[Rfam]
RNA sequence: GGGUGCUUGAGGCUGUCUGCCUCGGGCAUGCCACCGUAAGGCAGACAGAGAAAAGCCCCAGUUAACAUUACACGUCCUGCAAGACGCUUAACAUUAAUCUGAGGCUCAAUCUAUGAACGGUAAAUCUAGGUUAGCCUCUUACGAGCCGAAAGGCAAGGAGAAGCAGGCUAUGAAG
Numbered sequence: 001g002g003g004u005g006c007u008u009g010a011g012g013c014u015g016u017c018u019g020c021c022u023c024g025g026g027c028a029u030g031c032c033a034c035c036g037u038a039a040g041g042c043a044g045a046c047a048g049a050g051a052a053a054a055g056c057c058c059c060a061g062u063u064a065a066c067a068u069u070a071c072a073c074g075u076c077c078u079g080c081a082a083g084a085c086g087c088u089u090a091a092c093a094u095u096a097a098u099c100u101g102a103g104g105c106u107c108a109a110u111c112u113a114u115g116a117a118c119g120g121u122a123a124a125u126c127u128a129g130g131u132u133a134g135c136c137u138c139u140u141a142c143g144a145g146c147c148g149a150a151a152g153g154c155a156a157g158g159a160g161a162a163g164c165a166g167g168c169u170a171u172g173a174a175g
Stems, first nucleotide, its partner, number of pairs: 001059003005056004013048010026035001060100002063097001064095002068091002101138005108132006115126002142167001146163001